About this RNA: This 264-nucleotide RNA sequence from bacterium HR29 belongs to the Rfam family "Bacterial large signal recognition particle RNA". The signal recognition particle (SRP) is a universally conserved ribonucleoprotein involved in the co-translational targeting of proteins to membranes. By type it is a non-coding RNA gene. The family is grouped with related families in Rfam's "SRP clan".

RNA sequence: CCGUGCUAGACGGGGAGCUAGCGGUGCCCUGAACCCGCAAUCCGCUCGAGCGGGGUCGAAUUCCUGCCCGAGGGCUGCGCGUUCGGGCCGCGCUCCCGCCACGCGGCGCUGACGACCUGGUCCUGCGCGGCGAGGCGCCACGAACCUGGUCAGGUCCGGAAGGAAGCAGCCAUAAGUGGUCCGCCCCGGGUGCCGCAGGGAAGCCGGGUCCGAGCCAACGGGCGCGGGGCAAGCCCGGACGCGGGUUCGACGGCAGGUGCACGG
Numbered sequence: 001c002c003g004u005g006c007u008a009g010a011c012g013g014g015g016a017g018c019u020a021g022c023g024g025u026g027c028c029c030u031g032a033a034c035c036c037g038c039a040a041u042c043c044g045c046u047c048g049a050g051c052g053g054g055g056u057c058g059a060a061u062u063c064c065u066g067c068c069c070g071a072g073g074g075c076u077g078c079g080c081g082u083u084c085g086g087g088c089c090g091c092g093c094u095c096c097c098g099c100c101a102c103g104c105g106g107c108g109c110u111g112a113c114g115a116c117c118u119g120g121u122c123c124u125g126c127g128c129g130g131c132g133a134g135g136c137g138c139c140a141c142g143a144a145c146c147u148g149g150u151c152a153g154g155u156c157c158g159g160a161a162g163g164a165a166g167c168a169g170c171c172a173u174a175a176g177u178g179g180u181c182c183g184c185c186c187c188g189g190g191u192g193c194c195g196c197a198g199g200g201a202a203g204c205c206g207g208g209u210c211c212g213a214g215c216c217a218a219c220g221g222g223c224g225c226g227g228g229g230c231a232a233g234c235c236c237g238g239a240c241g242c243g244g245g246u247u248c249g250a251c252g253g254c255a256g257g258u259g260c261a262c263g264g
Stems, first nucleotide, its partner, number of pairs: 001264006009057003012030004017025003034054005063257006072248005078243010095226001097224004103219001105216003114210008122199006128190001131188002134185002137180005147172004155164003